Rfam assigns this 149-nucleotide sequence from Nitratireductor mangrovi to the family "Alphaproteobacterial sRNA ar9".
It is annotated as a small RNA.
It scores 125 bits against the family's covariance model.
NCBI's taxonomy places the organism under Bacteria, Pseudomonadati, Pseudomonadota, Hyphomicrobiales, Nitratireductor.
RNA sequence: AUAAAGAGGGAGUGGAAAUCGAAACCGCUCUCCUGCGCGGUCAAAGUCUUGGGAGGAUGCGAUCUAGGCGCGAUAAUCCGCUGCCGCCGGACACCGGAAACAGAUCGGACGCGUGAUAAAACUGCAAGGCUUCGGCCUUGCAUUUUUUU
Numbered sequence: 001a002u003a004a005a006g007a008g009g010g011a012g013u014g015g016a017a018a019u020c021g022a023a024a025c026c027g028c029u030c031u032c033c034u035g036c037g038c039g040g041u042c043a044a045a046g047u048c049u050u051g052g053g054a055g056g057a058u059g060c061g062a063u064c065u066a067g068g069c070g071c072g073a074u075a076a077u078c079c080g081c082u083g084c085c086g087c088c089g090g091a092c093a094c095c096g097g098a099a100a101c102a103g104a105u106c107g108g109a110c111g112c113g114u115g116a117u118a119a120a121a122c123u124g125c126a127a128g129g130c131u132u133c134g135g136c137c138u139u140g141c142a143u144u145u146u147u148u149u
Stems, first nucleotide, its partner, number of pairs: 003149004011029005036113004046058004061106005067085003070081003087097003123142008